[Rfam]
RNA sequence: UAGAGAAGUCAAUGAUGCUUUUACCAAAAAUGUCUGAACCUGUCUGAAGCAUCUCAGUGAUGCAGUCUCUGUAUGGUUCUGAGACUUCUCUGAGA
Numbered sequence: 001u002a003g004a005g006a007a008g009u010c011a012a013u014g015a016u017g018c019u020u021u022u023a024c025c026a027a028a029a030a031u032g033u034c035u036g037a038a039c040c041u042g043u044c045u046g047a048a049g050c051a052u053c054u055c056a057g058u059g060a061u062g063c064a065g066u067c068u069c070u071g072u073a074u075g076g077u078u079c080u081g082a083g084a085c086u087u088c089u090c091u092g093a094g095a
Base pairs, nucleotide, nucleotide: 004089005088006087007086008085009084010083
RNA: Small nucleolar RNA SNORD91 family